[Rfam]
RNA sequence: AAGUUACUUCGGGGCGAGGUGUGAUUCCUCACCGACGGUAUAGUCCGUGAACCGCUUAUGCGGCCGAUUGGGUGAAAUUCCCAAACCGACAGUAAAGUCUGGAUGGAAGAAGUAUAGU
Numbered sequence: 001a002a003g004u005u006a007c008u009u010c011g012g013g014g015c016g017a018g019g020u021g022u023g024a025u026u027c028c029u030c031a032c033c034g035a036c037g038g039u040a041u042a043g044u045c046c047g048u049g050a051a052c053c054g055c056u057u058a059u060g061c062g063g064c065c066g067a068u069u070g071g072g073u074g075a076a077a078u079u080c081c082c083a084a085a086c087c088g089a090c091a092g093u094a095a096a097g098u099c100u101g102g103a104u105g106g107a108a109g110a111a112g113u114a115u116a117g118u
Stems, first nucleotide, its partner, number of pairs: 005114006017029003031098002033088002035048004043086002052063002068084005090101003
Dot-bracket structure: ....((((((......(((.......))).[[((((((....[[))))...((........))....(((((.......)))))]])).(((....]]))).......))))))....

A member of the RNA family "FMN riboswitch aptamer (RFN element)" from Acidaminococcus sp. CAG:917, 118 nucleotides long. It scores 108 bits against the family's covariance model. The source organism's lineage runs through Bacteria, Negativicutes, Acidaminococcales, Acidaminococcaceae and Acidaminococcus. Pairs were carried over by alignment from the consensus structure, which is taken from published work.